[Rfam]
RNA sequence: CCUGCAGGACGAGGUGAAGGAGGUGGUUCUGCUCCGCGGUCAGCAGAGGCCACAUCUCCACCUGCAGCGCCUUGAUGGCUUCGAUGUCCUUCUCCUGGG
Numbered sequence: 001c002c003u004g005c006a007g008g009a010c011g012a013g014g015u016g017a018a019g020g021a022g023g024u025g026g027u028u029c030u031g032c033u034c035c036g037c038g039g040u041c042a043g044c045a046g047a048g049g050c051c052a053c054a055u056c057u058c059c060a061c062c063u064g065c066a067g068c069g070c071c072u073u074g075a076u077g078g079c080u081u082c083g084a085u086g087u088c089c090u091u092c093u094c095c096u097g098g099g
Stems, first nucleotide, its partner, number of pairs: 005097002007094002011091004020082005026076003030069004036065004046061001048059002
Dot-bracket structure: ....((((..((((.....(((((.(((.((((..((((......(.((........)).)))))))))....))).))))).....)))).)).))..

A member of the RNA family "mir-1184 microRNA precursor family" from Octodon degus, 99 nucleotides long. The base pairs follow the family's consensus structure, which was predicted with RNAalifold. The family has 2 seed sequences and 204 matches in Rfam 15.1.